RNA sequence: CUGAAAUACAGUGAUGAUGUCUUUUCCAAGGACAUCUCUGAUUGCUCUGUGUGGAAAAUGACUGUUGCUGAGUGAUUUUUCAA
Dot-bracket structure: .((((((((..............................................................)).))..)))).
Rfam assigns this 83-nucleotide RNA from Tyto alba to the family "Small nucleolar RNA SNORD121A".
The family's consensus secondary structure was predicted with WAR.
Rfam 15.1 lists 881 matches to the family in 444 species.
The source organism's lineage runs through Eukaryota, Chordata, Vertebrata, Sarcopterygii and Tyto.
It is annotated as a C/D-box small nucleolar RNA.
A search with the family's covariance model found it, with a score of 48 bits.
Gene Ontology terms of the family: RNA processing and nucleolus.